[Rfam]
RNA sequence: UCCGCCGUGAGACGGAAUCUGAAGGAAGCUGGAUGUGGGGAACAUACUAACCCACGGGCAAAUCUCCGGUCUGACGUACAGAAAUCUCAUACGAGGUUAUGCAUGAGGGUAAGGCUGCCAUACAAGUCGAAGCCCAAUAACUACACGGAAUCAUGCAUGAUAGAUGAGGCAGAUGGAGGUGUGCGUAAGCUUG
Numbered sequence: 001u002c003c004g005c006c007g008u009g010a011g012a013c014g015g016a017a018u019c020u021g022a023a024g025g026a027a028g029c030u031g032g033a034u035g036u037g038g039g040g041a042a043c044a045u046a047c048u049a050a051c052c053c054a055c056g057g058g059c060a061a062a063u064c065u066c067c068g069g070u071c072u073g074a075c076g077u078a079c080a081g082a083a084a085u086c087u088c089a090u091a092c093g094a095g096g097u098u099a100u101g102c103a104u105g106a107g108g109g110u111a112a113g114g115c116u117g118c119c120a121u122a123c124a125a126g127u128c129g130a131a132g133c134c135c136a137a138u139a140a141c142u143a144c145a146c147g148g149a150a151u152c153a154u155g156c157a158u159g160a161u162a163g164a165u166g167a168g169g170c171a172g173a174u175g176g177a178g179g180u181g182u183g184c185g186u187a188a189g190c191u192u193g
Stems, first nucleotide, its partner, number of pairs: 001016004006011001055193001058190002064183001066181001069174005085169006096161003100157007107135004113128004
Dot-bracket structure: ((((.(....).))))......................................(..((....(.(..(((((...........((((((.....(((.(((((((((((..((((........))))...))))...............))))))).)))..)))))))))))......).).....))..)